[Rfam]
RNA sequence: AUCUGUUAUAGUGGUCUAGAUAGUCCUUCUUAGCCAUCUUUAGCUCCCGGUUUUUAAGGACUAUCUUUUUUUUUAUGCUCCCC
Numbered sequence: 001a002u003c004u005g006u007u008a009u010a011g012u013g014g015u016c017u018a019g020a021u022a023g024u025c026c027u028u029c030u031u032a033g034c035c036a037u038c039u040u041u042a043g044c045u046c047c048c049g050g051u052u053u054u055u056a057a058g059g060a061c062u063a064u065c066u067u068u069u070u071u072u073u074u075a076u077g078c079u080c081c082c083c
Base pairs, nucleotide, nucleotide: 019065020064021063022062023061024060025059026058027057032052033051034050035049
Rfam assigns this 83-nucleotide RNA from Pelagibacterales bacterium SAG-MED19 to the family "rhtB sRNA". By type it is a small RNA. For this family Rfam cites "Identification of candidate structured RNAs in the marine organism 'Candidatus Pelagibacter ubique'" (Meyer et al., BMC Genomics, 2009).